Rfam assigns this 135-nucleotide RNA sequence from Canis lupus to the family "Small nucleolar RNA SNORA1". It is one of the family's seed sequences. Rfam classes the family as an H/ACA-box small nucleolar RNA. From the family's description: ACA1 is a member of the H/ACA class of snoRNA that guide the sites of modification of uridines to pseudouridines. Rfam 15.1 lists 1,282 matches to the family in 515 species.
RNA sequence: AGCCUCAUUCUAGAUGGUAAUGGGCACUGUCCUUCAUGGUGUCCAGAAAUUGUUAAUGUGGCUACAUUGAGACACAGGUUAUGCUUCCAUCACAGUAAGUUUAUUGCUGUGGUGACAAUGAGGCCUGUAACAUUU
Numbered sequence: 001a002g003c004c005u006c007a008u009u010c011u012a013g014a015u016g017g018u019a020a021u022g023g024g025c026a027c028u029g030u031c032c033u034u035c036a037u038g039g040u041g042u043c044c045a046g047a048a049a050u051u052g053u054u055a056a057u058g059u060g061g062c063u064a065c066a067u068u069g070a071g072a073c074a075c076a077g078g079u080u081a082u083g084c085u086u087c088c089a090u091c092a093c094a095g096u097a098a099g100u101u102u103a104u105u106g107c108u109g110u111g112g113u114g115a116c117a118a119u120g121a122g123g124c125c126u127g128u129a130a131c132a133u134u135u
Stems, first nucleotide, its partner, number of pairs: 002062003006058003021045007074128005088114006